Source information: The family of this 180-nucleotide sequence from Kitasatospora cheerisanensis is "c-di-AMP riboswitch aptamer (ydaO/yuaA leader)". This family represents a conserved RNA structure found upstream of the ydaO and yuaA genes in Bacillus subtilis and related genes in other bacteria. A search with the family's covariance model found it, with a score of 51 bits.
RNA sequence: CUCGGGACACCGACCAGACCCGGACAGGAGCGGGGGACCCAAGUGUGAACGCCGUAGUCCCCACGGCUUGGGGUGAAGCCGCCGGGGAGCGGACGCAACCGCGUCCGGUCCCGCCGGCGGCCGGGCCAGCCUCCCGGUCCGAACCCGACAGCUCACCUCGCAGGCGUGCGGAGAGGAAGC
Numbered sequence: 001c002u003c004g005g006g007a008c009a010c011c012g013a014c015c016a017g018a019c020c021c022g023g024a025c026a027g028g029a030g031c032g033g034g035g036g037a038c039c040c041a042a043g044u045g046u047g048a049a050c051g052c053c054g055u056a057g058u059c060c061c062c063a064c065g066g067c068u069u070g071g072g073g074u075g076a077a078g079c080c081g082c083c084g085g086g087g088a089g090c091g092g093a094c095g096c097a098a099c100c101g102c103g104u105c106c107g108g109u110c111c112c113g114c115c116g117g118c119g120g121c122c123g124g125g126c127c128a129g130c131c132u133c134c135c136g137g138u139c140c141g142a143a144c145c146c147g148a149c150a151g152c153u154c155a156c157c158u159c160g161c162a163g164g165c166g167u168g169c170g171g172a173g174a175g176g177a178a179g180c
Stems, first nucleotide, its partner, number of pairs: 011166002014163001019028002030161006040070005071146003079120007123140004